Rfam assigns this 82-nucleotide RNA sequence from Phascolarctos cinereus to the family "Small nucleolar RNA SNORD47". It is annotated as a C/D-box small nucleolar RNA. Rfam 15.1 lists 755 matches to the family in 638 species. The organism belongs to Phascolarctos, within Eukaryota.

RNA sequence: AACCAGUGAUGUAAAAGAUUCUGCCAAAUGAUAGAAUAUGAUUUUAUUCAUAAACCGUUCCAUUUUUUUUUACACUGAGGUU
Numbered sequence: 001a002a003c004c005a006g007u008g009a010u011g012u013a014a015a016a017g018a019u020u021c022u023g024c025c026a027a028a029u030g031a032u033a034g035a036a037u038a039u040g041a042u043u044u045u046a047u048u049c050a051u052a053a054a055c056c057g058u059u060c061c062a063u064u065u066u067u068u069u070u071u072a073c074a075c076u077g078a079g080g081u082u
Stems, first nucleotide, its partner, number of pairs: 001082004